[Rfam]
RNA sequence: GAAUGCGGGUAGUCGCUGUCGCGGUCAUUUUGGCGGCGAUAGAGGAAAGUCCAGGCUCGCCCAGACUGAGAUGUCUGGAGUGUUCGUACCUAGUGCAAACUAGGGCAGUGAGGCGACAGCUUCGCUGACGGCGCGGAACUGGUUCUCCCUGAGACCAAAGUACGCUGAAAGUGCCACAGAAACGAGCUUCCUUGGCGACAAGGAAGAUGGAACGCGGUAAACCCUGCGAGCGAGAAACCCAAAUUUGGUAGGGGAACCGUCCUGAAGGAAUCAAACGGAGGGACGGAUGGCAUGGAUCAUGCCAUAGAUAGAUGACUACCGCUCUUGGUGCGAGGGGAUUUCCCCGUUUGCAGCACGGGAGAGACAGAACCUGGCUUACAGCA
Dot-bracket structure: ...(((((((((((.((((((...............))))))....[[[.[[[[[(((((((((((......)))))).....(((((((((((....))))))((((((((((....))))))))).)((.(((....((((.(((...))))))).....))).....(((((...........((((((((....)))))))).........)))..))))))))))))))...(((..........)))...(((((((................)))))))((((((.......))))))........))))))).((((((.(((.....................)))))))))........]]]]]]]].).)))

Record summary: Rfam assigns this 383-nucleotide sequence from Brevibacillus fulvus to the family "Bacterial RNase P class B". For this family Rfam cites "Ribonuclease P: unity and diversity in a tRNA processing ribozyme" (Frank and Pace, Annu Rev Biochem, 1998). Taxonomically the source falls in Brevibacillus (Bacteria, Bacillati, Bacilli, Paenibacillaceae). Its Rfam clan is "RNaseP clan". From the family's description: Ribonuclease P (RNase P) is a ubiquitous endoribonuclease, found in archaea, bacteria and eukarya as well as chloroplasts and mitochondria. Its best characterised activity is the generation of mature 5'-ends of tRNAs by cleaving the 5'-leader elements of precursor-tRNAs. Cellular RNase Ps are ribonucleoproteins.